[Rfam]
RNA sequence: UGCAGUCGGGCAAGUCCUACACAACCAGCUCCUGUCGAAUUCCCCCAGGACGGGAACGUAGCAAGGGUAGACGGUCGUAGCGGUGUGAUGUAGGUCGCUUGCCCUUUU
Numbered sequence: 001u002g003c004a005g006u007c008g009g010g011c012a013a014g015u016c017c018u019a020c021a022c023a024a025c026c027a028g029c030u031c032c033u034g035u036c037g038a039a040u041u042c043c044c045c046c047a048g049g050a051c052g053g054g055a056a057c058g059u060a061g062c063a064a065g066g067g068u069a070g071a072c073g074g075u076c077g078u079a080g081c082g083g084u085g086u087g088a089u090g091u092a093g094g095u096c097g098c099u100u101g102c103c104c105u106u107u108u
Stems, first nucleotide, its partner, number of pairs: 008104008017093005022087002024084002
The record is a 108-nucleotide RNA sequence from Psychroflexus sediminis, which matches "Bacteroidales small SRP" in Rfam. It scores 107 bits against the family's covariance model.